[Rfam]
Description
The family of this 55-nucleotide RNA sequence from Conger conger is "UnaL2 LINE 3' element". It scores 57 bits against the family's covariance model. By type it is a cis-regulatory element. The eel long interspersed element (LINE) UnaL2 and its partner short interspersed element (SINE) share a conserved 3' tail containing a stem-loop that is critical for their retrotransposition. Presumably, the first step of retrotransposition is the recognition of their 3' tails by UnaL2-encoded reverse transcriptase. The solution structure of a 17-nucleotide RNA derived from the 3' tail of UnaL2 was determined by NMR.

RNA sequence: AACCUAUGCACUUGUAAGUCGCUUUGGAUUAAAAGCGUCUGCCAAAUGGCAUAAA
Numbered sequence: 001a002a003c004c005u006a007u008g009c010a011c012u013u014g015u016a017a018g019u020c021g022c023u024u025u026g027g028a029u030u031a032a033a034a035g036c037g038u039c040u041g042c043c044a045a046a047u048g049g050c051a052u053a054a055a
Stems, first nucleotide, its partner, number of pairs: 013044001014042003020037006